[Rfam]
RNA: Small nucleolar RNA Z105
RNA sequence: UUGGCGUGACGAGGAAAGAAAUAUUUGUUUGUCUGAUCUGAUCUAAGUGAGUAGAAAUACCUCCUACUCAUUCUCA
Numbered sequence: 001u002u003g004g005c006g007u008g009a010c011g012a013g014g015a016a017a018g019a020a021a022u023a024u025u026u027g028u029u030u031g032u033c034u035g036a037u038c039u040g041a042u043c044u045a046a047g048u049g050a051g052u053a054g055a056a057a058u059a060c061c062u063c064c065u066a067c068u069c070a071u072u073c074u075c076a
Stems, first nucleotide, its partner, number of pairs: 006071004027052002033049001